The record is a 473-nucleotide RNA from Granulicella aggregans, which matches "Bacterial RNase P class A" in Rfam. A search with the family's covariance model found it, with a score of 266 bits.
RNA sequence: GCAGACGGCUGGAUGAUCGCUGCCGCCUUCGGACCGUGUCUCUUGAUGCAGACCGUUUGGCGGGGGAGGAAAGUCCGAACUCCGCAGGGCAGUGUGCCGGAUAACGUCCGGGACGGAGGUUUCAAGACCUCUGGACGGCCAGUGCAACAGAGAACGAACCGCCCGGCUGGAGUCGAAAGACGACAGCAGGGUAAGGGUGAAAAGGUGCGGUAAGAGCGCACCGGUUCCUGCGUAAGCAGGAACGCUUGGUAAACCCCACACGGAGCAAGACCAAAUAGGCAGGGAUGUUGCCCCGCACUCUCGAGCGGGCAGCAAGCGCAUUGGCCCGAUGCGCCCAGGCCGAGAGAGCUGGUCGAGCGAAAGCGAAACCGGCAGCCGGAACCUGCGGGUAGGUUGCUAAAGCGCCGCAGUAAUGCGUCGCGUAGAGGAAUGAUCGUCUAAAACAGAAUUCGGCUUACGGGCCGUCUGCAAAC
Numbered sequence: 001g002c003a004g005a006c007g008g009c010u011g012g013a014u015g016a017u018c019g020c021u022g023c024c025g026c027c028u029u030c031g032g033a034c035c036g037u038g039u040c041u042c043u044u045g046a047u048g049c050a051g052a053c054c055g056u057u058u059g060g061c062g063g064g065g066g067a068g069g070a071a072a073g074u075c076c077g078a079a080c081u082c083c084g085c086a087g088g089g090c091a092g093u094g095u096g097c098c099g100g101a102u103a104a105c106g107u108c109c110g111g112g113a114c115g116g117a118g119g120u121u122u123c124a125a126g127a128c129c130u131c132u133g134g135a136c137g138g139c140c141a142g143u144g145c146a147a148c149a150g151a152g153a154a155c156g157a158a159c160c161g162c163c164c165g166g167c168u169g170g171a172g173u174c175g176a177a178a179g180a181c182g183a184c185a186g187c188a189g190g191g192u193a194a195g196g197g198u199g200a201a202a203a204g205g206u207g208c209g210g211u212a213a214g215a216g217c218g219c220a221c222c223g224g225u226u227c228c229u230g231c232g233u234a235a236g237c238a239g240g241a242a243c244g245c246u247u248g249g250u251a252a253a254c255c256c257c258a259c260a261c262g263g264a265g266c267a268a269g270a271c272c273a274a275a276u277a278g279g280c281a282g283g284g285a286u287g288u289u290g291c292c293c294c295g296c297a298c299u300c301u302c303g304a305g306c307g308g309g310c311a312g313c314a315a316g317c318g319c320a321u322u323g324g325c326c327c328g329a330u331g332c333g334c335c336c337a338g339g340c341c342g343a344g345a346g347a348g349c350u351g352g353u354c355g356a357g358c359g360a361a362a363g364c365g366a367a368a369c370c371g372g373c374a375g376c377c378g379g380a381a382c383c384u385g386c387g388g389g390u391a392g393g394u395u396g397c398u399a400a401a402g403c404g405c406c407g408c409a410g411u412a413a414u415g416c417g418u419c420g421c422g423u424a425g426a427g428g429a430a431u432g433a434u435c436g437u438c439u440a441a442a443a444c445a446g447a448a449u450u451c452g453g454c455u456u457a458c459g460g461g462c463c464g465u466c467u468g469c470a471a472a473c
Base pairs, nucleotide, nucleotide: 001469002468003467004466005465006464007463008462009461010460011458012438013437014436015435016434017433018432020066021065023063024062025061026060027059071456072455073454075453076452077451078450079449080265081264082263083262092261093260094259095258096257097111098110099109100108101107112136114133115132116131117130118129119128120127121126137256138255142254143253144250145249159196160195161192162191163190164189166187167186168185169184204222205221206220207219208218209217223245224243225242226241227240228239229238230237231236269395270394271393272392279386280385281384282383283382369379370378371377372376402421403420404419406417407416408415409414